[Rfam]
RNA sequence: ACUUGGUUUCCACGCAAUGAUAGAUUGUCAACCCCGCCAGGUCUGGAAGGAAGCAACGGUAACUUUUGAUUCAUGUGCCGUGUCAAGGCUAAGUCAGC
Numbered sequence: 001a002c003u004u005g006g007u008u009u010c011c012a013c014g015c016a017a018u019g020a021u022a023g024a025u026u027g028u029c030a031a032c033c034c035c036g037c038c039a040g041g042u043c044u045g046g047a048a049g050g051a052a053g054c055a056a057c058g059g060u061a062a063c064u065u066u067u068g069a070u071u072c073a074u075g076u077g078c079c080g081u082g083u084c085a086a087g088g089c090u091a092a093g094u095c096a097g098c
Stems, first nucleotide, its partner, number of pairs: 004091005011082004015075001017074004023067002027063002034059003042051003
Rfam assigns this 98-nucleotide sequence from Francisella tularensis to the family "Bacterial small signal recognition particle RNA". The source organism's lineage runs through Bacteria, Pseudomonadati, Pseudomonadota, Francisellaceae and Francisella tularensis subsp. holarctica. Rfam describes the family as follows. The signal recognition particle (SRP) is a universally conserved ribonucleoprotein involved in the co-translational targeting of proteins to membranes. It is one of the family's seed sequences.